[Rfam]
RNA sequence: CGGGGAAAGAAGACCCUGUUGAGCUUGACUCUAGUCUGACAUUGUGAAAUGACUUGAGAGGUGUAGCAUAGGUGGGAGAAGCAAUUCGAUCCUGAAAUACCACUACUCUUAAUGUUGUUUUACUUAUUCCAUGAGAUGGUAAUGAGUUGUAAGACUCAUUAAAGCCUUAAGCUCUCACGAGUGAACCACGUGGGAAACAGUGUUAGGUUGGGAGUUCGGCUGGGGCGGCACAUCUGUUAAAGAAUAACACAGGUGUCCUAAGAUGAGCUCAAUAAGAACAGAAAUCUUAUGUAGAACAAAAGGGUAAAAGCUCAUUUGAUUUUGCUUUUCAGUAUGAAUACAAACUACGAAAAUAUGGCCUAUCGAUCCUUUAGAUAUUUGAAGUUUUAAGCUAGAGGUGUCAGAAAAGUUACCACAGGGAUAACUGGCUUGUGGCGGCCAAGCGUUCAUAGCGACGUCGCUUUUUGAUUCUUCGAUGUCGGCUCUUCCUAUCAAGUAACAGCAGCAUAUUACAAAUGUAGGAUUGUUCACCCAUUAAUAGGGAACGUGAGCUGGGUUUAGACCGUCGUGAGACAGGUUAGUUUUACCCUA
Numbered sequence: 001c002g003g004g005g006a007a008a009g010a011a012g013a014c015c016c017u018g019u020u021g022a023g024c025u026u027g028a029c030u031c032u033a034g035u036c037u038g039a040c041a042u043u044g045u046g047a048a049a050u051g052a053c054u055u056g057a058g059a060g061g062u063g064u065a066g067c068a069u070a071g072g073u074g075g076g077a078g079a080a081g082c083a084a085u086u087c088g089a090u091c092c093u094g095a096a097a098u099a100c101c102a103c104u105a106c107u108c109u110u111a112a113u114g115u116u117g118u119u120u121u122a123c124u125u126a127u128u129c130c131a132u133g134a135g136a137u138g139g140u141a142a143u144g145a146g147u148u149g150u151a152a153g154a155c156u157c158a159u160u161a162a163a164g165c166c167u168u169a170a171g172c173u174c175u176c177a178c179g180a181g182u183g184a185a186c187c188a189c190g191u192g193g194g195a196a197a198c199a200g201u202g203u204u205a206g207g208u209u210g211g212g213a214g215u216u217c218g219g220c221u222g223g224g225g226c227g228g229c230a231c232a233u234c235u236g237u238u239a240a241a242g243a244a245u246a247a248c249a250c251a252g253g254u255g256u257c258c259u260a261a262g263a264u265g266a267g268c269u270c271a272a273u274a275a276g277a278a279c280a281g282a283a284a285u286c287u288u289a290u291g292u293a294g295a296a297c298a299a300a301a302g303g304g305u306a307a308a309a310g311c312u313c314a315u316u317u318g319a320u321u322u323u324g325c326u327u328u329u330c331a332g333u334a335u336g337a338a339u340a341c342a343a344a345c346u347a348c349g350a351a352a353a354u355a356u357g358g359c360c361u362a363u364c365g366a367u368c369c370u371u372u373a374g375a376u377a378u379u380u381g382a383a384g385u386u387u388u389a390a391g392c393u394a395g396a397g398g399u400g401u402c403a404g405a406a407a408a409g410u411u412a413c414c415a416c417a418g419g420g421a422u423a424a425c426u427g428g429c430u431u432g433u434g435g436c437g438g439c440c441a442a443g444c445g446u447u448c449a450u451a452g453c454g455a456c457g458u459c460g461c462u463u464u465u466u467g468a469u470u471c472u473u474c475g476a477u478g479u480c481g482g483c484u485c486u487u488c489c490u491a492u493c494a495a496g497u498a499a500c501a502g503c504a505g506c507a508u509a510u511u512a513c514a515a516a517u518g519u520a521g522g523a524u525u526g527u528u529c530a531c532c533c534a535u536u537a538a539u540a541g542g543g544a545a546c547g548u549g550a551g552c553u554g555g556g557u558u559u560a561g562a563c564c565g566u567c568g569u570g571a572g573a574c575a576g577g578u579u580a581g582u583u584u585u586a587c588c589c590u591a
Stems, first nucleotide, its partner, number of pairs: 003590003007585002015419004020415002022411005028215004035207007044123010054112007071104005078087002127195005137188004145156004171182004218231001219229003232254006257358002263315006269295002272290006296305002320344003326338003346355002369397006378390002428469001430467001432466001434462006443453002480555001481553004485547001486544005493518002496513004501508001521533002524530001561579004565574003
Eukaryotic large subunit ribosomal RNA: a 591-nucleotide part of an RNA from Blastocystis hominis. A search with the family's covariance model found it, with a score of 3034 bits. The family's consensus secondary structure is taken from published work. NCBI's taxonomy places the organism under Eukaryota, Sar, Bigyra, Blastocystis, Blastocystis hominis.